mir-29 microRNA precursor family: a 67-nucleotide RNA from Oncorhynchus kisutch. The match comes from Rfam's covariance-model search (68 bits). The family's consensus secondary structure was predicted with PFOLD. Rfam 15.1 lists 3,328 matches to the family in 787 species. For this family Rfam cites "microRNAs: tiny regulators with great potential" (Ambros, Cell, 2001).
[Rfam]
RNA sequence: GGAAGCUGGUUUCAGGUGGUGGCUUAGAGUGUAGUCAUUAUCUAGCACCAUUUGAAAUCAGUGUUCU
Numbered sequence: 001g002g003a004a005g006c007u008g009g010u011u012u013c014a015g016g017u018g019g020u021g022g023c024u025u026a027g028a029g030u031g032u033a034g035u036c037a038u039u040a041u042c043u044a045g046c047a048c049c050a051u052u053u054g055a056a057a058u059c060a061g062u063g064u065u066c067u
Base pairs, nucleotide, nucleotide: 001067002066003065004064005062006061007060008059009058010057011056012055013054014053016051017050018049019048020047021046025044026043027042028041